[Rfam]
RNA sequence: GGAUAUUUGAGGAGAUCUGUUCCUAGUACGAGAGGACCGGAAUGGACGAACCAAUGGUGUACCGGUUGUCGCGCCAGCGGCAUGGCCGGGUAGCUAAGUUCGGAAGGGAUAACCGCUGAAAGCAUCUAAGCGGGAAGCCUACUCCAAGAUAAGAUAUCCCGUACCUUUUGGUACCUGAAGGCUCGUUGGAGACUACAACGUUGAUAGGUCGGGUGUGGAAGCGUAGCAAUACGUGGAGCUAACCGAUACUAAUAAGCCGUGCG
Numbered sequence: 001g002g003a004u005a006u007u008u009g010a011g012g013a014g015a016u017c018u019g020u021u022c023c024u025a026g027u028a029c030g031a032g033a034g035g036a037c038c039g040g041a042a043u044g045g046a047c048g049a050a051c052c053a054a055u056g057g058u059g060u061a062c063c064g065g066u067u068g069u070c071g072c073g074c075c076a077g078c079g080g081c082a083u084g085g086c087c088g089g090g091u092a093g094c095u096a097a098g099u100u101c102g103g104a105a106g107g108g109a110u111a112a113c114c115g116c117u118g119a120a121a122g123c124a125u126c127u128a129a130g131c132g133g134g135a136a137g138c139c140u141a142c143u144c145c146a147a148g149a150u151a152a153g154a155u156a157u158c159c160c161g162u163a164c165c166u167u168u169u170g171g172u173a174c175c176u177g178a179a180g181g182c183u184c185g186u187u188g189g190a191g192a193c194u195a196c197a198a199c200g201u202u203g204a205u206a207g208g209u210c211g212g213g214u215g216u217g218g219a220a221g222c223g224u225a226g227c228a229a230u231a232c233g234u235g236g237a238g239c240u241a242a243c244c245g246a247u248a249c250u251a252a253u254a255a256g257c258c259g260u261g262c263g
Base pairs, nucleotide, nucleotide: 001159002158003157004156005155006154007153008152011145012144013143014142017045018044019043020042021041022040023039047102048101049100050099051098055096056095057094062089063088064087065086066085067082068081069080070079071078072077106140107139108138113133114132115131116130117129162173163172164171177260180258181257182256183255184200185199186198187197188196205251206250207249208247209246210245211244212243215239221234222233223232224231225230
Source information: Rfam assigns this 263-nucleotide part of an RNA from Desulfolithobacter dissulfuricans to the family "Bacterial large subunit ribosomal RNA".